[Rfam]
RNA sequence: GCUGCUGUGGGAUAGGAGGAGAGAUGUGUUACCAUAUCAGCUACCUCCUCUCCCAUCAUCUCUUUCUGUAGAAGC
Numbered sequence: 001g002c003u004g005c006u007g008u009g010g011g012a013u014a015g016g017a018g019g020a021g022a023g024a025u026g027u028g029u030u031a032c033c034a035u036a037u038c039a040g041c042u043a044c045c046u047c048c049u050c051u052c053c054c055a056u057c058a059u060c061u062c063u064u065u066c067u068g069u070a071g072a073a074g075c
Base pairs, nucleotide, nucleotide: 001075002074003073005071006070007069008068009067010066011063014059016057017056018054019053021052022051023050024049026047028045030043031042033040